Shown here is a 91-nucleotide RNA from Sinomonas sp. R1AF57, a member of the family "Glycine riboswitch aptamer".
RNA sequence: CAACUCUGGAAAGCGGCCCAAUUGGGCUCACCGACGGUGCAAGCCGGAACCAUCCGGCGGAAUCUCUCAGGUCCCAUACAGAGCGGGGAGG
Numbered sequence: 001c002a003a004c005u006c007u008g009g010a011a012a013g014c015g016g017c018c019c020a021a022u023u024g025g026g027c028u029c030a031c032c033g034a035c036g037g038u039g040c041a042a043g044c045c046g047g048a049a050c051c052a053u054c055c056g057g058c059g060g061a062a063u064c065u066c067u068c069a070g071g072u073c074c075c076a077u078a079c080a081g082a083g084c085g086g087g088g089a090g091g
Stems, first nucleotide, its partner, number of pairs: 001086001004083005015028004030072003033068002037066001039064001043058006
Rfam links the family to the GO term glycine biosynthetic process.